Rfam assigns this 76-nucleotide RNA from Artemisia annua to the family "Small nucleolar RNA snoR53Y". The organism belongs to Artemisia, within Eukaryota. It is annotated as a C/D-box small nucleolar RNA. The family's consensus secondary structure was predicted with WAR.
[Rfam]
RNA sequence: GUUCCCAGUGAUGCAUCAAUUUGACCAUGCUAAUUCUGAUAUUGAUGAAUAGUUUACAGUCAUUUCUGAGGGAACA
Numbered sequence: 001g002u003u004c005c006c007a008g009u010g011a012u013g014c015a016u017c018a019a020u021u022u023g024a025c026c027a028u029g030c031u032a033a034u035u036c037u038g039a040u041a042u043u044g045a046u047g048a049a050u051a052g053u054u055u056a057c058a059g060u061c062a063u064u065u066c067u068g069a070g071g072g073a074a075c076a
Stems, first nucleotide, its partner, number of pairs: 001075005